[Rfam]
Shown here is a 158-nucleotide RNA sequence from Cucumis melo, a member of the family "MIR408 microRNA precursor family".
Lineage of the source: Eukaryota > Pentapetalae > rosids > Cucurbitales > Cucumis.

RNA sequence: GGUUGGGGGAGAAAGAGCAGCGGGGAACAGACAGAGCAUGAAUGGAGUCCUCAACAGUCUCAAAAUCAAAUCAACACAUACCUUUUACCCUUUUAUCUUCCUGUUGUGCCUCUACUCAUGCACUGCCUCUUCCCUGGCUGCCCCUUAUUUUUCUAUCU
Numbered sequence: 001g002g003u004u005g006g007g008g009g010a011g012a013a014a015g016a017g018c019a020g021c022g023g024g025g026a027a028c029a030g031a032c033a034g035a036g037c038a039u040g041a042a043u044g045g046a047g048u049c050c051u052c053a054a055c056a057g058u059c060u061c062a063a064a065a066u067c068a069a070a071u072c073a074a075c076a077c078a079u080a081c082c083u084u085u086u087a088c089c090c091u092u093u094u095a096u097c098u099u100c101c102u103g104u105u106g107u108g109c110c111u112c113u114a115c116u117c118a119u120g121c122a123c124u125g126c127c128u129c130u131u132c133c134c135u136g137g138c139u140g141c142c143c144c145u146u147a148u149u150u151u152u153c154u155a156u157c158u
Base pairs, nucleotide, nucleotide: 017141018140019139021136022135023134024133025132026131027130029128030127032125033124034123036121037120038119039118040117041116045112046111